[Rfam]
RNA sequence: ACCGCGGUACGCAACUGGCGAUAGGCGCGGCCCACCGAGCGGCCGGCGCCGACGUGGACAUCAGCACAGGGGCUGCCUGAAGCGGGCAGCCGAUUGUUCCACCACGGGGAAGCGUGCCGCCGGGGUCUUCCGGUGUUCAGCCGUUCGCCUGGGCAGCCCUU
Numbered sequence: 001a002c003c004g005c006g007g008u009a010c011g012c013a014a015c016u017g018g019c020g021a022u023a024g025g026c027g028c029g030g031c032c033c034a035c036c037g038a039g040c041g042g043c044c045g046g047c048g049c050c051g052a053c054g055u056g057g058a059c060a061u062c063a064g065c066a067c068a069g070g071g072g073c074u075g076c077c078u079g080a081a082g083c084g085g086g087c088a089g090c091c092g093a094u095u096g097u098u099c100c101a102c103c104a105c106g107g108g109g110a111a112g113c114g115u116g117c118c119g120c121c122g123g124g125g126u127c128u129u130c131c132g133g134u135g136u137u138c139a140g141c142c143g144u145u146c147g148c149c150u151g152g153g154c155a156g157c158c159c160u161u
Stems, first nucleotide, its partner, number of pairs: 004120009015109002017149005054105004138156001140154003
This 161-nucleotide RNA belongs to the Rfam family "ZMP/ZTP riboswitch aptamer (pfl RNA motif)". Rfam links the family to the GO terms one-carbon metabolic process and regulation of purine nucleotide biosynthetic process.